[Rfam]
RNA sequence: UUUCUGAGUAGAAGCGGUCAGGGCCAUGGCUCGGGACAUUGCUCGGGAG
Numbered sequence: 001u002u003u004c005u006g007a008g009u010a011g012a013a014g015c016g017g018u019c020a021g022g023g024c025c026a027u028g029g030c031u032c033g034g035g036a037c038a039u040u041g042c043u044c045g046g047g048a049g
Stems, first nucleotide, its partner, number of pairs: 005045006015034001018036002021032004
RNA: Xanthine riboswitch aptamer (NMT1 RNA)